A member of the RNA family "SAH (S-adenosyl-L-homocysteine) riboswitch aptamer" from Pusillimonas sp. T2, 78 nucleotides long. The source organism's lineage runs through Bacteria, Pseudomonadati, Betaproteobacteria, Burkholderiales and Pusillimonas.
[Rfam]
Nucleotides: 078
Base pairs, nucleotide, nucleotide: 002047003046004045005044006043007042008041021034022033023032024031
Number, partner (000 for none) and nucleotide at each position: 001000c002047a003046c004045c005044c006043u007042g008041a009000g010000g011000g012000g013000c014000g015000c016000u017000g018000c019000g020000a021034c022033g023032g024031g025000a026000u027000a028000c029000u030000c031024c032023c033022c034021g035000c036000u037000a038000g039000g040000c041008u042007c043006a044005g045004g046003g047002u048000c049000g050000u051000u052000u053000c054000u055000u056000u057000u058000g059000u060000u061000c062000a063000a064000c065000g066000g067000c068000g069000c070000u071000c072000a073000u074000c075000a076000u077000c078000a